[Rfam]
This 120-nucleotide RNA sequence belongs to the Rfam family "SAM-I/IV (S-adenosyl methionine) riboswitch aptamer". Its Rfam clan is "SAM clan". It is one of the family's seed sequences.

RNA sequence: AUACAUCAAGAGAGAGCAAAAGCUCCACCAACCAGCCUAAAUCGGGCAACGGUGGUCCAAACGAUGUGGUUUUAGGUUAAAACCUUGAUAAAGGUACCAAAACAACAAUUCGAUUGAGGC
Numbered sequence: 001a002u003a004c005a006u007c008a009a010g011a012g013a014g015a016g017c018a019a020a021a022g023c024u025c026c027a028c029c030a031a032c033c034a035g036c037c038u039a040a041a042u043c044g045g046g047c048a049a050c051g052g053u054g055g056u057c058c059a060a061a062c063g064a065u066g067u068g069g070u071u072u073u074a075g076g077u078u079a080a081a082a083c084c085u086u087g088a089u090a091a092a093g094g095u096a097c098c099a100a101a102a103c104a105a106c107a108a109u110u111c112g113a114u115u116g117a118g119g120c
Stems, first nucleotide, its partner, number of pairs: 003067005012026001014025004027056003032052002035047003039115002042112001069103004